[Rfam]
RNA sequence: ACUGGAAGGUUGGCAUCUUCUGUAAUCACGCCUCUGUGAAGUCGGAUUGUGGGAUGGCCUGAGGCUGGGAGUUCUGUGUAUGGAAUUCCCCCAUGUUGACGGAACGUCUGCACUAACUUGCCGUCAAUAUGGGUACCAUGGAGGAGUCCGAGGUAUUCAGGUUGGCUAAGGAGGGGGUGUACCGGCCAGGGGUGAAAACCAGCAGCCAAGAGUCCCCGGUGGCAGUAGUGGGAUAGCGUACCGGAGUGUGGAGCCGUUACCAGCCAGCCAUGAUUGGACCACAUCCUU
Numbered sequence: 001a002c003u004g005g006a007a008g009g010u011u012g013g014c015a016u017c018u019u020c021u022g023u024a025a026u027c028a029c030g031c032c033u034c035u036g037u038g039a040a041g042u043c044g045g046a047u048u049g050u051g052g053g054a055u056g057g058c059c060u061g062a063g064g065c066u067g068g069g070a071g072u073u074c075u076g077u078g079u080a081u082g083g084a085a086u087u088c089c090c091c092c093a094u095g096u097u098g099a100c101g102g103a104a105c106g107u108c109u110g111c112a113c114u115a116a117c118u119u120g121c122c123g124u125c126a127a128u129a130u131g132g133g134u135a136c137c138a139u140g141g142a143g144g145a146g147u148c149c150g151a152g153g154u155a156u157u158c159a160g161g162u163u164g165g166c167u168a169a170g171g172a173g174g175g176g177g178u179g180u181a182c183c184g185g186c187c188a189g190g191g192g193u194g195a196a197a198a199c200c201a202g203c204a205g206c207c208a209a210g211a212g213u214c215c216c217c218g219g220u221g222g223c224a225g226u227a228g229u230g231g232g233a234u235a236g237c238g239u240a241c242c243g244g245a246g247u248g249u250g251g252a253g254c255c256g257u258u259a260c261c262a263g264c265c266a267g268c269c270a271u272g273a274u275u276g277g278a279c280c281a282c283a284u285c286c287u288u
Base pairs, nucleotide, nucleotide: 001042002041003040004021005020006019007018008017009016010015026039027038028037044287045286048283049282050281051280052279058276061271063269064268065267066266067265069264074263075262076261078260079259080258086253087252088251090250092248093247094246096244100243101242102241104239105238106237107236108232109231111230112229113228114227115226119224120223121222122221123220124219125164126163127162128161130159131158132157133156134155135154136153137152139150140149141148142147166170173217174216175215176214178212184207185206186205191200192199193198
Shown here is a 288-nucleotide RNA from Eumeta japonica, a member of the family "Metazoan signal recognition particle RNA". The signal recognition particle (SRP) is a universally conserved ribonucleoprotein. It is involved in the co-translational targeting of proteins to membranes. The eukaryotic SRP consists of a 300-nucleotide 7S RNA and six proteins: SRPs 72, 68, 54, 19, 14, and 9. Archaeal SRP consists of a 7S RNA and homologues of the eukaryotic SRP19 and SRP54 proteins. On this family, see Regalia et al., Nucleic Acids Res 2002: "Prediction of signal recognition particle RNA genes". Lineage of the source: Eukaryota > Mandibulata > Pterygota > Panorpida > Eumeta. A search with the family's covariance model found it, with a score of 165 bits.